[Rfam]
RNA sequence: UAACCGCAGCCGGGAGGCUGCGCUGAAUCCGCAGGAGUCAGCAGAGGCCAUAGUACGCGAGUACGGGACGUAAGGAAAGCGGAAGGGC
Numbered sequence: 001u002a003a004c005c006g007c008a009g010c011c012g013g014g015a016g017g018c019u020g021c022g023c024u025g026a027a028u029c030c031g032c033a034g035g036a037g038u039c040a041g042c043a044g045a046g047g048c049c050a051u052a053g054u055a056c057g058c059g060a061g062u063a064c065g066g067g068a069c070g071u072a073a074g075g076a077a078a079g080c081g082g083a084a085g086g087g088c
Stems, first nucleotide, its partner, number of pairs: 001025002005022007038045002047088003056081003064074001
RNA: Group II catalytic intron D1-D4-1
Organism: Thermobacillus composti